Source information
Rfam assigns this 114-nucleotide RNA from Intrasporangium calvum to the family "SAM (S-adenosyl methionine) riboswitch aptamer". A search with the family's covariance model found it, with a score of 109 bits. Lineage of the source: Bacteria > Bacillati > Actinomycetota > Intrasporangium > Intrasporangium calvum.
RNA sequence: GGUCAUGAGCACCAGCGACAAGCCCCGGCUCGCUGGUCGGCAACCCUCCUUCGCGGUGGGGUGCCCCGGGUGAGGACCAGGCCGCGCCCCAACCGGUGUCGGCAAGCGCGAGUA
Numbered sequence: 001g002g003u004c005a006u007g008a009g010c011a012c013c014a015g016c017g018a019c020a021a022g023c024c025c026c027g028g029c030u031c032g033c034u035g036g037u038c039g040g041c042a043a044c045c046c047u048c049c050u051u052c053g054c055g056g057u058g059g060g061g062u063g064c065c066c067c068g069g070g071u072g073a074g075g076a077c078c079a080g081g082c083c084g085c086g087c088c089c090c091a092a093c094c095g096g097u098g099u100c101g102g103c104a105a106g107c108g109c110g111a112g113u114a
Stems, first nucleotide, its partner, number of pairs: 001078004009038001011037006021030002039065003044061003048056002081103004086099002089096002